Rfam assigns this 167-nucleotide sequence from Xylanibacillus composti to the family "c-di-AMP riboswitch aptamer (ydaO/yuaA leader)".
It scores 89 bits against the family's covariance model.
Lineage of the source: Bacteria > Bacillati > Bacilli > Caryophanales > Xylanibacillus.

RNA sequence: UUCCAGAAAUCGCUAAGUUUCCUUCCAAGGGAAACGGGGGACCCAACCAUUCGGGGUGAAUUUUGCGGACAAUAUCUUGCGGAGCGAUCCGGGGAAAAAGUUGCAAAUAGGGUGAACUCUGACCCGAACCCGACAGCUAACCUCGUCAGCGUUUUUAGAGAGCAACC
Numbered sequence: 001u002u003c004c005a006g007a008a009a010u011c012g013c014u015a016a017g018u019u020u021c022c023u024u025c026c027a028a029g030g031g032a033a034a035c036g037g038g039g040g041a042c043c044c045a046a047c048c049a050u051u052c053g054g055g056g057u058g059a060a061u062u063u064u065g066c067g068g069a070c071a072a073u074a075u076c077u078u079g080c081g082g083a084g085c086g087a088u089c090c091g092g093g094g095a096a097a098a099a100g101u102u103g104c105a106a107a108u109a110g111g112g113u114g115a116a117c118u119c120u121g122a123c124c125c126g127a128a129c130c131c132g133a134c135a136g137c138u139a140a141c142c143u144c145g146u147c148a149g150c151g152u153u154u155u156u157a158g159a160g161a162g163c164a165a166c167c
Stems, first nucleotide, its partner, number of pairs: 011151004018033006034146006044053001054131003062107007110125004
Dot-bracket structure: ..........((((...((((((....))))))((((((....(........)(((.....(((((((................................)))))))..((((........))))...))).........)))))).))))................